[Rfam]
RNA sequence: GCCGGGGAACCAAGCACCUGGGGUGAAUCCGGCACCGCCUCCGGGCGCGUGCUGGUAGGGCGAUCGUGCGCCCGAGUCCGUCAGCUCACCUGGU
Dot-bracket structure: ((((((....((......))(((.....(((((((.............)))))))..((((........))))...))).........))))))
Numbered sequence: 001g002c003c004g005g006g007g008a009a010c011c012a013a014g015c016a017c018c019u020g021g022g023g024u025g026a027a028u029c030c031g032g033c034a035c036c037g038c039c040u041c042c043g044g045g046c047g048c049g050u051g052c053u054g055g056u057a058g059g060g061c062g063a064u065c066g067u068g069c070g071c072c073c074g075a076g077u078c079c080g081u082c083a084g085c086u087c088a089c090c091u092g093g094u
Stems, first nucleotide, its partner, number of pairs: 001094006011020002021079003029055007058073004
The family of this 94-nucleotide RNA sequence is "c-di-AMP riboswitch aptamer (ydaO/yuaA leader)". Its family is annotated with cyclic-di-AMP binding and regulation of gene expression in the Gene Ontology.